[Rfam]
RNA: Bacterial RNase P class A
RNA sequence: GAAGCAGGCCAGACCGCCGCUGGUGCAAGCGUGGAAACACGGCACUGGAGGAACGUCCGGACUGCACAGGGCAGCGUAGCAGGUAACACCUGCCCACCGCGAGGUGAGGAUCAGAGCAACAGAGACGAGUCGCCGGGCUUUCGGGCCUGGCGGGUGAAACGGGCAAUCUCUACGCGCAGCAAUACCAAAUAGGCAUGCGAUGACCCGGCCCGGUGAGCAUGCGGGUAGGUAGCACCGAGCCGUCCGGGCGACCGGCGGCCCAGAUUAAUGGUGGUCACAUGGCCGGCAACGGCCAUGCACAGAAUCCGGCGUAUCGGCCUGCUUCACAC
Numbered sequence: 001g002a003a004g005c006a007g008g009c010c011a012g013a014c015c016g017c018c019g020c021u022g023g024u025g026c027a028a029g030c031g032u033g034g035a036a037a038c039a040c041g042g043c044a045c046u047g048g049a050g051g052a053a054c055g056u057c058c059g060g061a062c063u064g065c066a067c068a069g070g071g072c073a074g075c076g077u078a079g080c081a082g083g084u085a086a087c088a089c090c091u092g093c094c095c096a097c098c099g100c101g102a103g104g105u106g107a108g109g110a111u112c113a114g115a116g117c118a119a120c121a122g123a124g125a126c127g128a129g130u131c132g133c134c135g136g137g138c139u140u141u142c143g144g145g146c147c148u149g150g151c152g153g154g155u156g157a158a159a160c161g162g163g164c165a166a167u168c169u170c171u172a173c174g175c176g177c178a179g180c181a182a183u184a185c186c187a188a189a190u191a192g193g194c195a196u197g198c199g200a201u202g203a204c205c206c207g208g209c210c211c212g213g214u215g216a217g218c219a220u221g222c223g224g225g226u227a228g229g230u231a232g233c234a235c236c237g238a239g240c241c242g243u244c245c246g247g248g249c250g251a252c253c254g255g256c257g258g259c260c261c262a263g264a265u266u267a268a269u270g271g272u273g274g275u276c277a278c279a280u281g282g283c284c285g286g287c288a289a290c291g292g293c294c295a296u297g298c299a300c301a302g303a304a305u306c307c308g309g310c311g312u313a314u315c316g317g318c319c320u321g322c323u324u325c326a327c328a329c
Stems, first nucleotide, its partner, number of pairs: 001325010011314001012276007020048007053312003057309005062179004069211004074175005079093005094108001095106004109170002114168002116164002130153010183231004193222006205213002239259004244255004